[Rfam]
RNA sequence: UUGAGAAACAUCAUUGAGUGCAGCGUUGAUGAAAGGUCCUGUCAAUCCUACUGUCGUUUAUGGGACAGCUUCGUUAGCGCUGCACCCAAUCAUGUUUCUA
Numbered sequence: 001u002u003g004a005g006a007a008a009c010a011u012c013a014u015u016g017a018g019u020g021c022a023g024c025g026u027u028g029a030u031g032a033a034a035g036g037u038c039c040u041g042u043c044a045a046u047c048c049u050a051c052u053g054u055c056g057u058u059u060a061u062g063g064g065a066c067a068g069c070u071u072c073g074u075u076a077g078c079g080c081u082g083c084a085c086c087c088a089a090u091c092a093u094g095u096u097u098c099u100a
Stems, first nucleotide, its partner, number of pairs: 006097006013090004018085011030073003